[Rfam]
RNA: Small nucleolar RNA SNORA79
Organism: Ovis aries
RNA sequence: UGAUGAUGUUCCUCCUGUUGCCUUCAAGCCCGGCAUUAGGCUUUUAGGUCAUCAUAAAUUAAAAUUUGCUUUUUCUUCACUCAGGGUAAUGGGCUUAUCUACUGAUUCUCUGAAUUUGCAAAGUCAAACACUU
Numbered sequence: 001u002g003a004u005g006a007u008g009u010u011c012c013u014c015c016u017g018u019u020g021c022c023u024u025c026a027a028g029c030c031c032g033g034c035a036u037u038a039g040g041c042u043u044u045u046a047g048g049u050c051a052u053c054a055u056a057a058a059u060u061a062a063a064a065u066u067u068g069c070u071u072u073u074u075c076u077u078c079a080c081u082c083a084g085g086g087u088a089a090u091g092g093g094c095u096u097a098u099c100u101a102c103u104g105a106u107u108c109u110c111u112g113a114a115u116u117u118g119c120a121a122a123g124u125c126a127a128a129c130a131c132u133u
Stems, first nucleotide, its partner, number of pairs: 001054006007047001014040004019035004068125001070123004081113006087097002